The family of this 140-nucleotide sequence from Suricata suricatta is "Small Cajal body specific RNA 21". Its family is annotated with nucleolus, Cajal body and RNA processing in the Gene Ontology. From the family's description: scaRNAs are a specific class of small nuclear RNAs which localise to the Cajal bodies and guide the modification of RNA polymerase II transcribed spliceosomal RNAs U1, U2, U4, U5 and U12. ACA68 (SCARNA21) is a member of the H/ACA class of snoRNAs that guide the sites of modification of uridines to pseudouridines. The family's RNA type in Rfam is small Cajal body RNA. It scores 121 bits against the family's covariance model. The organism belongs to Suricata, within Eukaryota.
RNA sequence: UGGCUCGGUUUCCUGGGGCGUGGGCUCAGCCUGCCCCACCCCCCCUCAGCCGAGCCGAGAGCAGAGAGGCCUGGCCUCCUCCCCCACGGGGCAGGUGGUUAAGACAGGAGCCUUGGCCCCGCUGGCCUCGCCUCACAUGG
Numbered sequence: 001u002g003g004c005u006c007g008g009u010u011u012c013c014u015g016g017g018g019c020g021u022g023g024g025c026u027c028a029g030c031c032u033g034c035c036c037c038a039c040c041c042c043c044c045c046u047c048a049g050c051c052g053a054g055c056c057g058a059g060a061g062c063a064g065a066g067a068g069g070c071c072u073g074g075c076c077u078c079c080u081c082c083c084c085c086a087c088g089g090g091g092c093a094g095g096u097g098g099u100u101a102a103g104a105c106a107g108g109a110g111c112c113u114u115g116g117c118c119c120c121g122c123u124g125g126c127c128u129c130g131c132c133u134c135a136c137a138u139g140g
Base pairs, nucleotide, nucleotide: 002056003055004054005053006052007051015044016043017042018041020039021038022037023036024035066134067133068132069131070130073127074126078121088113089112090111